Shown here is a 48-nucleotide sequence, a member of the family "Plastid-ycf3 group II-D1 intron". The base pairs follow the family's consensus structure, which was predicted with LocARNA. Rfam's curators put it in the seed alignment.
RNA sequence: AUUCCUUCCGUCGUGUAUCCCCGAUUAAUGCAGCCUUAUAUGCUUCAA
Numbered sequence: 001a002u003u004c005c006u007u008c009c010g011u012c013g014u015g016u017a018u019c020c021c022c023g024a025u026u027a028a029u030g031c032a033g034c035c036u037u038a039u040a041u042g043c044u045u046c047a048a
Stems, first nucleotide, its partner, number of pairs: 010025004032044003